The record is a 317-nucleotide RNA from Spinacia oleracea, which matches "Plant signal recognition particle RNA" in Rfam.
NCBI's taxonomy places the organism under Eukaryota, eudicotyledons, Gunneridae, Caryophyllales, Spinacia.
It is annotated as a non-coding RNA gene.
Rfam links the family to the GO terms SRP-dependent cotranslational protein targeting to membrane, signal sequence recognition and signal recognition particle, endoplasmic reticulum targeting.
RNA sequence: GCUGAGCUCAGUAACGUGAGCUUGUGACCCAAGUGGGAGCAUUAAGCUGAUGGAACAGGAUUUCAGCUCUCUGGGUCGGGUCUCUGUGGUUGGCAUUAUGCUGGCUCGCCCUCUCCAAGUUGAGAGUUGGUCCAUGUGGGUCGGGCGAAGGCCUGAUCUUUAUGGGCCUUAGAGUGGAGGGGACUGCGUGAGGCUGGUUUCACAGAGCAACGAAAACCUCCCGCUCUUGUCAGUGGAAGGAUAACGAGCUUGCGCUUCCUAGGCCCAUUAGUACUUAGUUACUUAGUUGGCUGAUCCUCCAAUGGACCAUCACUUUA
Numbered sequence: 001g002c003u004g005a006g007c008u009c010a011g012u013a014a015c016g017u018g019a020g021c022u023u024g025u026g027a028c029c030c031a032a033g034u035g036g037g038a039g040c041a042u043u044a045a046g047c048u049g050a051u052g053g054a055a056c057a058g059g060a061u062u063u064c065a066g067c068u069c070u071c072u073g074g075g076u077c078g079g080g081u082c083u084c085u086g087u088g089g090u091u092g093g094c095a096u097u098a099u100g101c102u103g104g105c106u107c108g109c110c111c112u113c114u115c116c117a118a119g120u121u122g123a124g125a126g127u128u129g130g131u132c133c134a135u136g137u138g139g140g141u142c143g144g145g146c147g148a149a150g151g152c153c154u155g156a157u158c159u160u161u162a163u164g165g166g167c168c169u170u171a172g173a174g175u176g177g178a179g180g181g182g183a184c185u186g187c188g189u190g191a192g193g194c195u196g197g198u199u200u201c202a203c204a205g206a207g208c209a210a211c212g213a214a215a216a217c218c219u220c221c222c223g224c225u226c227u228u229g230u231c232a233g234u235g236g237a238a239g240g241a242u243a244a245c246g247a248g249c250u251u252g253c254g255c256u257u258c259c260u261a262g263g264c265c266c267a268u269u270a271g272u273a274c275u276u277a278g279u280u281a282c283u284u285a286g287u288u289g290g291c292u293g294a295u296c297c298u299c300c301a302a303u304g305g306a307c308c309a310u311c312a313c314u315u316u317a
Base pairs, nucleotide, nucleotide: 001040002039003038004023005022006021007020008019009018010017028037029036030035043317044316045315046314048312049311050310051309052308053307056304057303058300059299060298063294064293065292066291068281071278072277073276074275075274076273078266079265080264081263082262083261086260089258092256093255101252103250104249105248106247107246108245110240111239114237115236116235117234119231121229122228123227124226125225126224127223129168130167131166132165133164134163135162136161138159139158140157141156142155143154144153145152146151169174176221177220178219179218180217185214187212188211189210194205195204196203